RNA sequence: UCUGUGGAAUGUGAUGACUUGAAACUUUUUCCCCAUCAGAUCGGCAGUGCUGACCAAAACUUGCAUUUUAGCCAGGCUGUCUGAUUCCACAGA
Numbered sequence: 001u002c003u004g005u006g007g008a009a010u011g012u013g014a015u016g017a018c019u020u021g022a023a024a025c026u027u028u029u030u031c032c033c034c035a036u037c038a039g040a041u042c043g044g045c046a047g048u049g050c051u052g053a054c055c056a057a058a059a060c061u062u063g064c065a066u067u068u069u070a071g072c073c074a075g076g077c078u079g080u081c082u083g084a085u086u087c088c089a090c091a092g093a
Stems, first nucleotide, its partner, number of pairs: 001093009
RNA: Small nucleolar SNORD12/SNORD106
Organism: Gopherus evgoodei